RNA sequence: UCUCGUGCUGUGACUCUGCAAAGGGAAGCCCUUUCUGUUGUCUAAAAGAAUAGAAAGCGCUUCCCUUUGGAGUGUUACGGUUUGAGA
Number, nucleotide and partner (000 for none) at each position: 001u087002c086003u085004c084005g083006u000007g081008c080009u079010g078011u077012g076013a075014c074015u000016c072017u071018g000019c000020a068021a067022a066023g065024g064025g063026a062027a061028g060029c059030c000031c057032u056033u055034u054035c053036u000037g000038u052039u000040g000041u000042c000043u000044a000045a000046a000047a000048g000049a000050a000051u000052a038053g035054a034055a033056a032057g031058c000059g029060c028061u027062u026063c025064c024065c023066u022067u021068u020069g000070g000071a017072g016073u000074g014075u013076u012077a011078c010079g009080g008081u007082u000083u005084g004085a003086g002087a001
Description: The record is an 87-nucleotide sequence from Pan troglodytes, which matches "mir-515 microRNA precursor family" in Rfam. Rfam links the family to the GO terms RISC complex and miRNA-mediated post-transcriptional gene silencing. The organism belongs to Pan, within Eukaryota. The base pairs follow the family's consensus structure, which was predicted with RNAalifold. The literature on the family includes a 2005 paper in Nat Genet by Bentwich et al., "Identification of hundreds of conserved and nonconserved human microRNAs".